Background
Small nucleolar RNA SNORD116: a 94-nucleotide sequence from Bos taurus. The family's RNA type in Rfam is C/D-box small nucleolar RNA. The family has 48 seed sequences and 3,260 matches in Rfam 15.1. The organism belongs to Bos, within Eukaryota.
RNA sequence: AAACUGAUGAUGACUCCAGAAAAGGGCAUACCUUGGAAAUCUAAAUAAAAUGAGUGUGAAAAGCCUCUACUGUCUCCUCAUCAGAACUGGGUCC
Numbered sequence: 001a002a003a004c005u006g007a008u009g010a011u012g013a014c015u016c017c018a019g020a021a022a023a024g025g026g027c028a029u030a031c032c033u034u035g036g037a038a039a040u041c042u043a044a045a046u047a048a049a050a051u052g053a054g055u056g057u058g059a060a061a062a063g064c065c066u067c068u069a070c071u072g073u074c075u076c077c078u079c080a081u082c083a084g085a086a087c088u089g090g091g092u093c094c
Stems, first nucleotide, its partner, number of pairs: 003092003027058005033048003